[Rfam]
RNA sequence: GCCCGGGUGGCGGAAUUGGCAGACGCGCUAGGUUCAGGUCCUAGUGUUCGCAAGGACAUAGGGGUUCAAGUCCCCUCCCGGGCA
Number, nucleotide and partner (000 for none) at each position: 001g083002c082003c081004c080005g079006g078007g077008u000009g000010g026011c025012g024013g000014a000015a000016u000017u000018g000019g000020c000021a000022g000023a000024c012025g011026c010027g000028c044029u043030a042031g041032g040033u000034u000035c000036a000037g000038g000039u000040c032041c031042u030043a029044g028045u000046g000047u000048u000049c000050g000051c000052a000053a000054g000055g000056a000057c000058a000059u000060a076061g075062g074063g073064g072065u000066u000067c000068a000069a000070g000071u000072c064073c063074c062075c061076u060077c007078c006079c005080g004081g003082g002083c001084a000